RNA sequence: CGACUACAAAACCCUAUCUCCAUCUUCACGUGGUGACUGCUGGGAACUCUUUCUUAAUGAAAGGCUGCAGACGGAGAAGG
Dot-bracket structure: ............(((.(.((.(((.......)))...........(.((((((.....)))))).)......)).).)))
RNA: drz-agam-1 ribozyme